[Rfam]
RNA sequence: UGUAAGAUUGAAGAGGAUAGACGGGGAGGAGACAGAGCAUGAGAUGAGCCUUUAAUCCACAAUAUUGAUGCUCUUCCCCUGCACUGCCUCUUCCCUGGCUCUCCUCUCUCUAUCUCUCU
Dot-bracket structure: ................(.((.(((((((.((.(((.(((.(.(..((........................))...)).))).))).)).))))))).)).).................

The record is a 119-nucleotide RNA from Rhododendron simsii, which matches "MIR408 microRNA precursor family" in Rfam. Taxonomically the source falls in Rhododendron (Eukaryota, Tracheophyta, eudicotyledons, Rhodoreae). Pairs were carried over by alignment from the consensus structure, which was predicted with WAR.